[Rfam]
RNA sequence: GCCUGAUCCUAAGUACUAGUGCCGCAGGAGAGAUAGCAAGGACUCCUGCUGCUCAAGUGCUUAUCAUUGGGG
Numbered sequence: 001g002c003c004u005g006a007u008c009c010u011a012a013g014u015a016c017u018a019g020u021g022c023c024g025c026a027g028g029a030g031a032g033a034u035a036g037c038a039a040g041g042a043c044u045c046c047u048g049c050u051g052c053u054c055a056a057g058u059g060c061u062u063a064u065c066a067u068u069g070g071g072g
Stems, first nucleotide, its partner, number of pairs: 002071006010063008019054001024049007
Rfam assigns this 72-nucleotide sequence from Chionoecetes opilio to the family "mir-252 microRNA precursor family". On this family, see Ruby et al., Cell 2006: "Large-scale sequencing reveals 21U-RNAs and additional microRNAs and endogenous siRNAs in C. elegans". A search with the family's covariance model found it, with a score of 69 bits.